[Rfam]
This 56-nucleotide RNA from Streptomyces sp. GS7 belongs to the Rfam family "msiK RNA". Pairs were carried over by alignment from the consensus structure, which is taken from published work. A search with the family's covariance model found it, with a score of 44 bits. The family's RNA type in Rfam is cis-regulatory element.
RNA sequence: CACCGCCAACCCCCACUCGGAUCGUCCGGCACGUUCCUGCCGGUGAAGGGAUCACU
Numbered sequence: 001c002a003c004c005g006c007c008a009a010c011c012c013c014c015a016c017u018c019g020g021a022u023c024g025u026c027c028g029g030c031a032c033g034u035u036c037c038u039g040c041c042g043g044u045g046a047a048g049g050g051a052u053c054a055c056u
Base pairs, nucleotide, nucleotide: 010049011048014045015044026043027042028041029040030039031038